RNA: EFASI RNA
Organism: Serratia plymuthica
RNA sequence: UCGACUCGGUAUCGAUGGCGACACUACGAACAGUAGUGUGUGGAGGCAGACUGACUAACGUCAGGCCGGCGAAAGCCGCGAACAGGUCAGAGACCUGGGGAGCCUCGAAAUAACUCAACAUUUCGCCGCCCCGAUGCACAGAUACCAGUCG
Numbered sequence: 001u002c003g004a005c006u007c008g009g010u011a012u013c014g015a016u017g018g019c020g021a022c023a024c025u026a027c028g029a030a031c032a033g034u035a036g037u038g039u040g041u042g043g044a045g046g047c048a049g050a051c052u053g054a055c056u057a058a059c060g061u062c063a064g065g066c067c068g069g070c071g072a073a074a075g076c077c078g079c080g081a082a083c084a085g086g087u088c089a090g091a092g093a094c095c096u097g098g099g100g101a102g103c104c105u106c107g108a109a110a111u112a113a114c115u116c117a118a119c120a121u122u123u124c125g126c127c128g129c130c131c132c133g134a135u136g137c138a139c140a141g142a143u144a145c146c147a148g149u150c151g
Stems, first nucleotide, its partner, number of pairs: 002151004008146006019042002021039006043106004051064005083098001084096005